Source information: A member of the RNA family "Actinobacteria sRNA Ms_IGR-7" from Streptomyces klenkii, 119 nucleotides long. It scores 46 bits against the family's covariance model. By type it is a small RNA.
[Rfam]
RNA sequence: CGCGGGUGUUCUCUCAACCUGGUGCUGUGGAACCUUAGACAAGUACCAUCUUCCCAGGUCAGAGGGCAUCCGCGCUUUCAUGUCCAGCUCACGGACAGGCAAUCACCCGGUGAAUCGAG
Numbered sequence: 001c002g003c004g005g006g007u008g009u010u011c012u013c014u015c016a017a018c019c020u021g022g023u024g025c026u027g028u029g030g031a032a033c034c035u036u037a038g039a040c041a042a043g044u045a046c047c048a049u050c051u052u053c054c055c056a057g058g059u060c061a062g063a064g065g066g067c068a069u070c071c072g073c074g075c076u077u078u079c080a081u082g083u084c085c086a087g088c089u090c091a092c093g094g095a096c097a098g099g100c101a102a103u104c105a106c107c108c109g110g111u112g113a114a115u116c117g118a119g
Stems, first nucleotide, its partner, number of pairs: 002073012017059001019057004027049002030046001032044002100117001102115002104112002